The record is a 304-nucleotide sequence from Sulfolobales archaeon HS-7, which matches "Archaeal RNase P" in Rfam. The literature on the family includes a 1999 paper in Nucleic Acids Res by Brown, "The Ribonuclease P Database". It is annotated as a ribozyme. From the family's description: Ribonuclease P (RNase P) is a ubiquitous endoribonuclease, found in archaea, bacteria and eukarya as well as chloroplasts and mitochondria. Its best characterised activity is the generation of mature 5'-ends of tRNAs by cleaving the 5'-leader elements of precursor-tRNAs. The match comes from Rfam's covariance-model search (141 bits).
RNA sequence: UGGGCCGCGGAGGAACCCAACGGGAUUUAACCCUGAGGAAAUACCAGCCUCCCGCAGCAAGGGAGUCCUAACUAGGACAUAUGAAGAACAUAUGGCAACUACAAAGAAAAUUCCUCAUAACCUCCGAUGAGAAUGAUACGGUAGUUAAGGGAGCGAUUCCUUAACGAAGUGGAGAGGAGGUUAGUAGAGUUGAAAAGUAGACCUCCCUGGAGCAAGGGGAAGAUCUGUGAAAGGCUGUCGAGAUCUUCCGUUUCCGCUUAGUCAAAUGGUUCCUACGACAAAAGCUGGAUUAUGCCGCGGCCCA
Numbered sequence: 001u002g003g004g005c006c007g008c009g010g011a012g013g014a015a016c017c018c019a020a021c022g023g024g025a026u027u028u029a030a031c032c033c034u035g036a037g038g039a040a041a042u043a044c045c046a047g048c049c050u051c052c053c054g055c056a057g058c059a060a061g062g063g064a065g066u067c068c069u070a071a072c073u074a075g076g077a078c079a080u081a082u083g084a085a086g087a088a089c090a091u092a093u094g095g096c097a098a099c100u101a102c103a104a105a106g107a108a109a110a111u112u113c114c115u116c117a118u119a120a121c122c123u124c125c126g127a128u129g130a131g132a133a134u135g136a137u138a139c140g141g142u143a144g145u146u147a148a149g150g151g152a153g154c155g156a157u158u159c160c161u162u163a164a165c166g167a168a169g170u171g172g173a174g175a176g177g178a179g180g181u182u183a184g185u186a187g188a189g190u191u192g193a194a195a196a197g198u199a200g201a202c203c204u205c206c207c208u209g210g211a212g213c214a215a216g217g218g219g220a221a222g223a224u225c226u227g228u229g230a231a232a233g234g235c236u237g238u239c240g241a242g243a244u245c246u247u248c249c250g251u252u253u254c255c256g257c258u259u260a261g262u263c264a265a266a267u268g269g270u271u272c273c274u275a276c277g278a279c280a281a282a283a284g285c286u287g288g289a290u291u292a293u294g295c296c297g298c299g300g301c302c303c304a
Stems, first nucleotide, its partner, number of pairs: 001304003005300005011293001012273006021035004040291003044288005049212004055237004060208005065078005079093005094203002099200004114189003118183007216255004221246005